[Rfam]
Shown here is an 83-nucleotide sequence from Callosobruchus maculatus, a member of the family "mir-927 microRNA precursor family". Pairs were carried over by alignment from the consensus structure, which was predicted with RNAalifold. The family has 16 seed sequences and 174 matches in Rfam 15.1. The literature on the family includes a 2010 paper in Nat Genet by Berezikov et al., "Evolutionary flux of canonical microRNAs and mirtrons in Drosophila".

RNA sequence: AAGCGUGUAUUUUGGUUUAGAAUUCCUACGCUUUACCGUAUUUCUAAACAGGCAAAGCGUUUGAGUUCUGAAUCCUGAAUAUA
Numbered sequence: 001a002a003g004c005g006u007g008u009a010u011u012u013u014g015g016u017u018u019a020g021a022a023u024u025c026c027u028a029c030g031c032u033u034u035a036c037c038g039u040a041u042u043u044c045u046a047a048a049c050a051g052g053c054a055a056a057g058c059g060u061u062u063g064a065g066u067u068c069u070g071a072a073u074c075c076u077g078a079a080u081a082u083a
Stems, first nucleotide, its partner, number of pairs: 010077001014074008023065003028060007036052002